Description: The record is a 374-nucleotide RNA from Vallicoccus soli, which matches "Bacterial RNase P class A" in Rfam. The family's consensus secondary structure is taken from published work. Ribonuclease P (RNase P) is a ubiquitous endoribonuclease, found in archaea, bacteria and eukarya as well as chloroplasts and mitochondria.
[Rfam]
RNA sequence: CGAGCCGGCCGGGCGGUCGCGUCAGGGCCCUUCGGGGUCCUGCCGAGGAAAGUCCGGGCUCCACAGGGCAGGGUGGUGGGCAACGCCCACCCGGGGUGACCCGCGGGACAGUGCCACAGAGAGGAGACCGCCGGGGGCGCUCGCGCCGCCGGUAAGGGUGAAAGGGUGGUGCAAGAGACCACCAGCGGCCGGGGUGACCCGGUCGGCUCGGCAAACCCCACCCGGAGCAAGGCCAGACAGGGGACGUCCGAGGGCUGCCCGCCCGAGUCCCCGGGUAGGCCGCACGAGGCUGUCGGCAACGGCAGUCCGAGAUGGAUGGCCGCCGCCCCGCGCGAGCGGGGGCACAGAACCCGGCUUACAGGCCGACUCGUCCG
Numbered sequence: 001c002g003a004g005c006c007g008g009c010c011g012g013g014c015g016g017u018c019g020c021g022u023c024a025g026g027g028c029c030c031u032u033c034g035g036g037g038u039c040c041u042g043c044c045g046a047g048g049a050a051a052g053u054c055c056g057g058g059c060u061c062c063a064c065a066g067g068g069c070a071g072g073g074u075g076g077u078g079g080g081c082a083a084c085g086c087c088c089a090c091c092c093g094g095g096g097u098g099a100c101c102c103g104c105g106g107g108a109c110a111g112u113g114c115c116a117c118a119g120a121g122a123g124g125a126g127a128c129c130g131c132c133g134g135g136g137g138c139g140c141u142c143g144c145g146c147c148g149c150c151g152g153u154a155a156g157g158g159u160g161a162a163a164g165g166g167u168g169g170u171g172c173a174a175g176a177g178a179c180c181a182c183c184a185g186c187g188g189c190c191g192g193g194g195u196g197a198c199c200c201g202g203u204c205g206g207c208u209c210g211g212c213a214a215a216c217c218c219c220a221c222c223c224g225g226a227g228c229a230a231g232g233c234c235a236g237a238c239a240g241g242g243g244a245c246g247u248c249c250g251a252g253g254g255c256u257g258c259c260c261g262c263c264c265g266a267g268u269c270c271c272c273g274g275g276u277a278g279g280c281c282g283c284a285c286g287a288g289g290c291u292g293u294c295g296g297c298a299a300c301g302g303c304a305g306u307c308c309g310a311g312a313u314g315g316a317u318g319g320c321c322g323c324c325g326c327c328c329c330g331c332g333c334g335a336g337c338g339g340g341g342g343c344a345c346a347g348a349a350c351c352c353g354g355c356u357u358a359c360a361g362g363c364c365g366a367c368u369c370g371u372c373c374g
Stems, first nucleotide, its partner, number of pairs: 001370004006365005011359001012324007020045002023042006050357003054354005059227004066260004071223005076090005091105001092103004106218002111216002113212003128157002130153005136147003165183006185207001186205008231281004240272006252264004288307008
Lineage of the source: Bacteria > Bacillati > Actinomycetota > Vallicoccaceae > Vallicoccus.